[Rfam]
RNA sequence: AAGCGUAACCUCUUGUAAAUCUCCAACACUAAGCUUGGUUACAGCUCUGUUGAAGAAUUGCAGGUGGUAGGUG
Numbered sequence: 001a002a003g004c005g006u007a008a009c010c011u012c013u014u015g016u017a018a019a020u021c022u023c024c025a026a027c028a029c030u031a032a033g034c035u036u037g038g039u040u041a042c043a044g045c046u047c048u049g050u051u052g053a054a055g056a057a058u059u060g061c062a063g064g065u066g067g068u069a070g071g072u073g
Stems, first nucleotide, its partner, number of pairs: 004070001007068001009067002012064003018058001020056003024052005
This 73-nucleotide sequence from Ciona savignyi belongs to the Rfam family "mir-1497 microRNA precursor family".
Its family is annotated with miRNA-mediated post-transcriptional gene silencing and RISC complex in the Gene Ontology.
The source organism's lineage runs through Eukaryota, Chordata, Phlebobranchia, Cionidae and Ciona.
The family's consensus secondary structure was predicted with WAR.